[Rfam]
RNA sequence: UCAAAACUAGCUACUUGUUAUUUUCUAAUUGGUUCUUAGUGUAAUUUUUAUAGGAACCAAUUAGAAAAUCACAAAUGGCUAGUUUUGA
Numbered sequence: 001u002c003a004a005a006a007c008u009a010g011c012u013a014c015u016u017g018u019u020a021u022u023u024u025c026u027a028a029u030u031g032g033u034u035c036u037u038a039g040u041g042u043a044a045u046u047u048u049u050a051u052a053g054g055a056a057c058c059a060a061u062u063a064g065a066a067a068a069u070c071a072c073a074a075a076u077g078g079c080u081a082g083u084u085u086u087g088a
Base pairs, nucleotide, nucleotide: 002087003086004085005084006083007082008081009080010079011078012077013076015074016073017072018071020069021068022067023066024065025064026063027062028061029060030059031058032057033056034055035054036053037052038051
Rfam assigns this 88-nucleotide sequence from Prunus dulcis to the family "MIR6288 microRNA precursor family". A search with the family's covariance model found it, with a score of 81 bits. The organism belongs to Prunus, within Eukaryota.